Rfam assigns this 63-nucleotide sequence from Ornithorhynchus anatinus to the family "Small nucleolar RNA Z39".
RNA sequence: GUGCAAAUGAUGAGCACAUUAUGGUAUGAAAAAUUAAUGAUACUGUAAACGCUUUCUGAUGUA
Dot-bracket structure: .((((......((...(....((((((............)))))).....)..))....))))
Background
The literature on the family includes a 2003 paper in Nucleic Acids Res by Chen et al., "The high diversity of snoRNAs in plants: identification and comparative study of 120 snoRNA genes from Oryza sativa".